[Rfam]
RNA sequence: AGGCCGUGAUGAAGCAAAGAUGUCAUGCACCACACUGAGGAUGCGUCCUGUGCUGAUAAUCGACAGAUAACCCAUUUAGUUCUGAGCCU
Number, nucleotide and partner (000 for none) at each position: 001a089002g088003g087004c086005c000006g000007u000008g000009a000010u000011g000012a000013a000014g000015c000016a000017a000018a000019g000020a000021u000022g000023u000024c000025a000026u000027g000028c000029a000030c000031c000032a000033c000034a000035c000036u000037g000038a000039g000040g000041a000042u000043g000044c000045g000046u000047c000048c000049u000050g000051u000052g000053c000054u000055g000056a000057u000058a000059a000060u000061c000062g000063a000064c000065a000066g000067a000068u000069a000070a000071c000072c000073c000074a000075u000076u000077u000078a000079g000080u000081u000082c000083u000084g000085a000086g004087c003088c002089u001
A member of the RNA family "Small nucleolar RNA Z221/R21b" from Spirodela intermedia, 89 nucleotides long. Rfam classes the family as a C/D-box small nucleolar RNA. The match comes from Rfam's covariance-model search (54 bits). Its family is annotated with nucleolus and RNA processing in the Gene Ontology. On this family, see Chen et al., Nucleic Acids Res 2003: "The high diversity of snoRNAs in plants: identification and comparative study of 120 snoRNA genes from Oryza sativa".